[Rfam]
RNA sequence: CUGCGGGCUCACGCCCGCAGCUAUACGCUACCGCCGUUUCACGGCU
Numbered sequence: 001c002u003g004c005g006g007g008c009u010c011a012c013g014c015c016c017g018c019a020g021c022u023a024u025a026c027g028c029u030a031c032c033g034c035c036g037u038u039u040c041a042c043g044g045c046u
Stems, first nucleotide, its partner, number of pairs: 001020008033045005
RNA: Acido-Lenti-1 RNA